[Rfam]
RNA sequence: CCUCUGCCCUUAAUCGCCGGUUAAGUUUUUGCCUCUAAAUUGAGCAGUGUCCAGCUUGGACUCUUGCAGAGCGGUUUUCUCUCUGUUUGACGCCUCCCUGUUAACUUUCAAGGGCCGCUGUCUUCAGCGGCUCUUUUUCU
Numbered sequence: 001c002c003u004c005u006g007c008c009c010u011u012a013a014u015c016g017c018c019g020g021u022u023a024a025g026u027u028u029u030u031g032c033c034u035c036u037a038a039a040u041u042g043a044g045c046a047g048u049g050u051c052c053a054g055c056u057u058g059g060a061c062u063c064u065u066g067c068a069g070a071g072c073g074g075u076u077u078u079c080u081c082u083c084u085g086u087u088u089g090a091c092g093c094c095u096c097c098c099u100g101u102u103a104a105c106u107u108u109c110a111a112g113g114g115c116c117g118c119u120g121u122c123u124u125c126a127g128c129g130g131c132u133c134u135u136u137u138u139c140u
Base pairs, nucleotide, nucleotide: 002044003043004042005016006015022037023036025034049061050060051059052058069083070082071081073079074078089102090101091100092099110135111134112133113132114131115130116129117128118127119126120125
RNA: Alphaproteobacterial sRNA BjrC1505